RNA sequence: GUGAUCCUUCGGGGCAGAGUGAAAUUCUCGACCGGCGGUGUUGAACAAACAUGUUCUCAGUCCGUGACCCGCGCGACAUAUGUCGUUCGGUGGAUCCAGUGAGACCCUGGAGCCGACAGUUAAAGUCUGGAUGGGAGAAGGAUGUU
Number, nucleotide and partner (000 for none) at each position: 001g000002u000003g000004a143005u142006c141007c140008u139009u138010c137011g000012g000013g000014g000015c000016a000017g029018a028019g027020u000021g000022a000023a000024a000025u000026u000027c019028u018029c017030g000031a126032c125033c115034g114035g065036c064037g063038g062039u000040g000041u000042u000043g000044a000045a000046c000047a000048a000049a000050c000051a000052u000053g000054u000055u000056c000057u000058c000059a000060g113061u112062c038063c037064g036065u035066g000067a000068c000069c090070c089071g000072c000073g000074c000075g000076a000077c000078a000079u000080a000081u000082g000083u000084c000085g000086u000087u000088c000089g070090g069091u000092g000093g000094a000095u111096c110097c109098a108099g107100u000101g000102a000103g000104a000105c000106c000107c099108u098109g097110g096111a095112g061113c060114c034115g033116a000117c129118a128119g127120u000121u000122a000123a000124a000125g032126u031127c119128u118129g117130g000131a000132u000133g000134g000135g000136a000137g010138a009139a008140g007141g006142a005143u004144g000145u000146u000

About this RNA
Shown here is a 146-nucleotide RNA from Halalkalibacillus sediminis, a member of the family "FMN riboswitch aptamer (RFN element)". The source organism's lineage runs through Bacteria, Bacillota, Bacilli, Bacillaceae and Halalkalibacillus. Pairs were carried over by alignment from the consensus structure, which is taken from published work.